[Rfam]
RNA: U5 spliceosomal RNA
Organism: Etheostoma spectabile
RNA sequence: UCACUCUGGUUUCUCUUCAUAACACAUACAUCUUUUGUCUUUUUCUAAAGACUUCCUUGGAGGGGAAUGCAGAUGAGCUAAAACUAGUUAAGUCUAUUUCUAGUCUGUUAACGUUUAACAA
Numbered sequence: 001u002c003a004c005u006c007u008g009g010u011u012u013c014u015c016u017u018c019a020u021a022a023c024a025c026a027u028a029c030a031u032c033u034u035u036u037g038u039c040u041u042u043u044u045c046u047a048a049a050g051a052c053u054u055c056c057u058u059g060g061a062g063g064g065g066a067a068u069g070c071a072g073a074u075g076a077g078c079u080a081a082a083a084c085u086a087g088u089u090a091a092g093u094c095u096a097u098u099u100c101u102a103g104u105c106u107g108u109u110a111a112c113g114u115u116u117a118a119c120a121a
Base pairs, nucleotide, nucleotide: 004077005076006075009068010067011066012065013064014063015062016061017060018059019058028054031051032050033049034048035047106120107119108118109117